RNA sequence: AGGAAGCAAAGCGGCGGGGGAACGCGCGGCCAGCUGACAGCCCAGACGCGUCUGGGCUGUCAGCUGGCCGCGCGUUCCCCCGCCGCUUUGCUUCCU
Number, nucleotide and partner (000 for none) at each position: 001a096002g095003g094004a093005a092006g091007c090008a089009a088010a000011g086012c085013g000014g000015c000016g081017g080018g079019g078020g077021a076022a075023c074024g073025c072026g071027c070028g069029g068030c067031c000032a065033g064034c063035u062036g061037a060038c059039a058040g057041c056042c055043c054044a053045g052046a051047c000048g000049c000050g000051u046052c045053u044054g043055g042056g041057c040058u039059g038060u037061c036062a035063g034064c033065u032066g000067g030068c029069c028070g027071c026072g025073c024074g023075u022076u021077c020078c019079c018080c017081c016082g000083c000084c000085g012086c011087u000088u009089u008090g007091c006092u005093u004094c003095c002096u001
This 96-nucleotide RNA from Pelodiscus sinensis belongs to the Rfam family "Epstein-Barr virus stable intronic sequence RNA 2".
A reference for the family is Moss et al. (2014), "RNA families in Epstein-Barr virus", RNA Biol.
The source organism's lineage runs through Eukaryota, Deuterostomia, Chordata, Gnathostomata and Pelodiscus.